[Rfam]
ALIL pseudoknot: a 135-nucleotide RNA from Gordonia sp. NB41Y. NCBI's taxonomy places the organism under Bacteria, Bacillati, Actinomycetota, Gordoniaceae, Gordonia. By type it is a cis-regulatory element.
RNA sequence: GACGUCUUUCUUCGUGGGGGAACUCGACCCCCGCAAUCGAUGAUCAUCAGCUUCAUUGAUGAGAUGCGUACCAAAGGUGUUGCGGUCGAGUCGAUCUGCCGAGUCCUGUCUGAGCAGGGCUGUCAGAUCGCCGCA
Numbered sequence: 001g002a003c004g005u006c007u008u009u010c011u012u013c014g015u016g017g018g019g020g021a022a023c024u025c026g027a028c029c030c031c032c033g034c035a036a037u038c039g040a041u042g043a044u045c046a047u048c049a050g051c052u053u054c055a056u057u058g059a060u061g062a063g064a065u066g067c068g069u070a071c072c073a074a075a076g077g078u079g080u081u082g083c084g085g086u087c088g089a090g091u092c093g094a095u096c097u098g099c100c101g102a103g104u105c106c107u108g109u110c111u112g113a114g115c116a117g118g119g120c121u122g123u124c125a126g127a128u129c130g131c132c133g134c135a
Stems, first nucleotide, its partner, number of pairs: 016032005081135005092130002095127004100122002